RNA sequence: AUUGGUCUUUAAUCCCUUGUGGUCUCCUGUGGCCCCUGGUGCCAUAACUGUGCCCACAGCAGAGGGAGCAUUAAACUCAUUGCCCACGGGAAAGUGGGGGGAGUGAUACCCAUGUUCCUAUAAUC
Numbered sequence: 001a002u003u004g005g006u007c008u009u010u011a012a013u014c015c016c017u018u019g020u021g022g023u024c025u026c027c028u029g030u031g032g033c034c035c036c037u038g039g040u041g042c043c044a045u046a047a048c049u050g051u052g053c054c055c056a057c058a059g060c061a062g063a064g065g066g067a068g069c070a071u072u073a074a075a076c077u078c079a080u081u082g083c084c085c086a087c088g089g090g091a092a093a094g095u096g097g098g099g100g101g102a103g104u105g106a107u108a109c110c111c112a113u114g115u116u117c118c119u120a121u122a123a124u125c
Stems, first nucleotide, its partner, number of pairs: 005051002009047001014041001016039001021034004065118001067116005077106005085096003
A member of the RNA family "Small nucleolar RNA ACA64" from Bucco capensis, 125 nucleotides long.
Pairs were carried over by alignment from the consensus structure, which was predicted with WAR.
Rfam classes the family as an H/ACA-box small nucleolar RNA.
Its family is annotated with nucleolus and RNA processing in the Gene Ontology.